[Rfam]
RNA: Mammalian CPEB3 ribozyme
RNA sequence: AUCGCAAAAAAGGGGGUCACAGCAGGAGCGUUAAAUGUCGCGGUCCCGAUCGAACCCAUGUACUGAUGGGUCGUGAAUCCUGCU
Number, nucleotide and partner (000 for none) at each position: 001a000002u000003c000004g000005c000006a000007a000008a000009a000010a000011a000012g000013g047014g046015g045016g044017u043018c042019a000020c000021a084022g083023c082024a081025g080026g079027a078028g041029c040030g039031u000032u000033a000034a000035a000036u000037g000038u000039c030040g029041c028042g018043g017044u016045c015046c014047c013048g000049a000050u000051c073052g072053a071054a000055c069056c068057c000058a000059u000060g000061u000062a000063c000064u000065g000066a000067u000068g056069g055070g000071u053072c052073g051074u000075g000076a000077a000078u027079c026080c025081u024082g023083c022084u021